[Rfam]
Shown here is an 85-nucleotide RNA sequence from Eubacteriaceae bacterium Marseille-Q4139, a member of the family "ZMP/ZTP riboswitch aptamer (pfl RNA motif)". Rfam 15.1 lists 3,295 matches to the family in 2,545 species. Lineage of the source: Bacteria > Bacillati > Bacillota > Clostridia > Eubacteriaceae. The match comes from Rfam's covariance-model search (62 bits). The base pairs follow the family's consensus structure, which is taken from published work.
RNA sequence: GAAGGUUCCUGUGACUGACGGGAAGGUGGGCAAAAACCACCAGGGAGCAGGAAUCCAUAAUAUGCCGACCGUCUGGGCAGUACCG
Number, nucleotide and partner (000 for none) at each position: 001g000002a000003a000004g055005g054006u053007u052008c051009c050010u049011g048012u047013g000014a000015c044016u043017g073018a072019c071020g070021g069022g000023a000024a000025g000026g040027u039028g038029g037030g000031c000032a000033a000034a000035a000036a000037c029038c028039a027040c026041c000042a000043g016044g015045g000046a000047g012048c011049a010050g009051g008052a007053a006054u005055c004056c000057a000058u000059a000060a000061u000062a000063u079064g078065c077066c076067g000068a000069c021070c020071g019072u018073c017074u000075g000076g066077g065078c064079a063080g000081u000082a000083c000084c000085g000